[Rfam]
A member of the RNA family "Xanthine riboswitch aptamer (NMT1 RNA)" from Rhizobium sp. CF122, 49 nucleotides long.
The sequence is in the family's curated seed alignment.
Gene Ontology term of the family: purine nucleobase binding.
Pairs were carried over by alignment from the consensus structure, which is taken from published work.
The literature on the family includes a 2021 paper in Nucleic Acids Res by Xu et al., "Insights into xanthine riboswitch structure and metal ion-mediated ligand recognition".
The organism belongs to Rhizobium, within Bacteria.
RNA sequence: CUCGCGAGUAGAAGCGGUCUGAACCUUGGUUCUGGACAUUGCUCGACGG
Number, nucleotide and partner (000 for none) at each position: 001c000002u000003c000004g000005c045006g044007a043008g042009u041010a040011g000012a000013a000014g000015c034016g000017g000018u036019c035020u000021g032022a031023a030024c029025c000026u000027u000028g000029g024030u023031u022032c021033u000034g015035g019036a018037c000038a000039u000040u010041g009042c008043u007044c006045g005046a000047c000048g000049g000